[Rfam]
RNA sequence: UGAGCAUAAUGAUGAUUGUUUUUUAUUCCGAUUAAUUCAUGAAUGGAUUAUUAAACCUCCUACUCAUUCUGA
Numbered sequence: 001u002g003a004g005c006a007u008a009a010u011g012a013u014g015a016u017u018g019u020u021u022u023u024u025a026u027u028c029c030g031a032u033u034a035a036u037u038c039a040u041g042a043a044u045g046g047a048u049u050a051u052u053a054a055a056c057c058u059c060c061u062a063c064u065c066a067u068u069c070u071g072a
Base pairs, nucleotide, nucleotide: 006067007066009064027047028046029041

Small nucleolar RNA Z105: a 72-nucleotide RNA sequence from Artemisia annua. A reference for the family is Chen et al. (2003), "The high diversity of snoRNAs in plants: identification and comparative study of 120 snoRNA genes from Oryza sativa", Nucleic Acids Res. Rfam links the family to the GO terms RNA processing and nucleolus.